RNA sequence: GACCUGUAUCUCGAACUGUUACCGGAUGGUGGCGUGUAGAGGACAACUCUAAUAGAGACGUGGUUGGGA
Numbered sequence: 001g002a003c004c005u006g007u008a009u010c011u012c013g014a015a016c017u018g019u020u021a022c023c024g025g026a027u028g029g030u031g032g033c034g035u036g037u038a039g040a041g042g043a044c045a046a047c048u049c050u051a052a053u054a055g056a057g058a059c060g061u062g063g064u065u066g067g068g069a
Stems, first nucleotide, its partner, number of pairs: 001065004006061002009058004017034007037051004